Small Cajal body specific RNA 1: a 156-nucleotide RNA from Pipistrellus kuhlii. The match comes from Rfam's covariance-model search (74 bits). By type it is a small Cajal body RNA. Rfam describes the family as follows. scaRNAs are a specific class of small nuclear RNAs which localise to the Cajal bodies and guide the modification of RNA polymerase II transcribed spliceosomal RNAs U1, U2, U4, U5 and U12. ACA35 belong to the H/ACA box class of guide RNAs as it has the predicted hairpin-hinge-hairpin-tail structure, conserved H/ACA-box motifs and is found associated with GAR1. Its family is annotated with RNA processing, Cajal body and nucleolus in the Gene Ontology.
[Rfam]
RNA sequence: CAGCACUUGAUACUGAGUUAUCUGUGGCCUAGCCUUGUUUUGUAUCAGAGGCUCGUGGUGUGGUGACAGCUGGUCGAAGUGCAGUAUUUAAAAAGCCACGAGCAUCUUCAGCGCAGUGUGCAGACAUGCUCUGAAUUAUAUCUCAGGGGCACACUG
Numbered sequence: 001c002a003g004c005a006c007u008u009g010a011u012a013c014u015g016a017g018u019u020a021u022c023u024g025u026g027g028c029c030u031a032g033c034c035u036u037g038u039u040u041u042g043u044a045u046c047a048g049a050g051g052c053u054c055g056u057g058g059u060g061u062g063g064u065g066a067c068a069g070c071u072g073g074u075c076g077a078a079g080u081g082c083a084g085u086a087u088u089u090a091a092a093a094a095g096c097c098a099c100g101a102g103c104a105u106c107u108u109c110a111g112c113g114c115a116g117u118g119u120g121c122a123g124a125c126a127u128g129c130u131c132u133g134a135a136u137u138a139u140a141u142c143u144c145a146g147g148g149g150c151a152c153a154c155u156g
Base pairs, nucleotide, nucleotide: 003082004081005080006079007078008077016071017070018069019068021066022065023062024061025060026059028057029055031053032052033051034050035049036048095150096149097148116129117128118127119126120125130147131146132145133144134143